Rfam assigns this 76-nucleotide RNA sequence from Flavobacterium soyangense to the family "Flavo-1 RNA". The family's consensus secondary structure is taken from published work. By type it is a small RNA. NCBI's taxonomy places the organism under Bacteria, Pseudomonadati, Bacteroidota, Flavobacteriales, Flavobacterium. It scores 61 bits against the family's covariance model.
[Rfam]
Nucleotides: 076
Base pairs, nucleotide, nucleotide: 009068010067011066013064014063018059019058023054024053025052029049030048031047032046033045036042
Number, partner (000 for none) and nucleotide at each position: 001000u002000u003000u004000u005000a006000g007000u008000c009068c010067u011066g012000a013064u014063g015000g016000a017000a018059g019058c020000g021000a022000c023054a024053u025052c026000c027000u028000u029049u030048g031047u032046g033045g034000c035000c036042g037000g038000a039000g040000u041000u042036c043000a044000a045033c046032c047031g048030c049029a050000a051000a052025g053024a054023u055000a056000a057000a058019g059018c060000g061000g062000a063014u064013a065000g066011c067010a068009g069000g070000a071000a072000u073000a074000g075000c076000u